[Rfam]
RNA: Glycine riboswitch aptamer
RNA sequence: ACCGUCCGCGUGGGAGAGACCGGCCGUCAUCCGCCCUGAAGAGGGCGAGGGCGAUCGGCGCCGAAGGAGCAACCGCCCCCGGAAACUCUCAGGCAAAAGGACCGCGCGGACGCG
Numbered sequence: 001a002c003c004g005u006c007c008g009c010g011u012g013g014g015a016g017a018g019a020c021c022g023g024c025c026g027u028c029a030u031c032c033g034c035c036c037u038g039a040a041g042a043g044g045g046c047g048a049g050g051g052c053g054a055u056c057g058g059c060g061c062c063g064a065a066g067g068a069g070c071a072a073c074c075g076c077c078c079c080c081g082g083a084a085a086c087u088c089u090c091a092g093g094c095a096a097a098a099g100g101a102c103c104g105c106g107c108g109g110a111c112g113c114g
Stems, first nucleotide, its partner, number of pairs: 006109008020058004060094003063090002067088003073081001